[Rfam]
RNA: SAM riboswitch aptamer (S box leader)
RNA sequence: UUCUUAUCAAGAGUGACGGAGGGAUAGGCCCUAUGAAGUCCGGCAACAUCCAAUUAUUUUGGAGAUGUGCUAAUUCCUACAGGUUUAUCCUGAGAGAUGAGAA
Numbered sequence: 001u002u003c004u005u006a007u008c009a010a011g012a013g014u015g016a017c018g019g020a021g022g023g024a025u026a027g028g029c030c031c032u033a034u035g036a037a038g039u040c041c042g043g044c045a046a047c048a049u050c051c052a053a054u055u056a057u058u059u060u061g062g063a064g065a066u067g068u069g070c071u072a073a074u075u076c077c078u079a080c081a082g083g084u085u086u087a088u089c090c091u092g093a094g095a096g097a098u099g100a101g102a103a
Stems, first nucleotide, its partner, number of pairs: 001103008013041001015040003021031003025079004042071004047067002049063004075095001080092004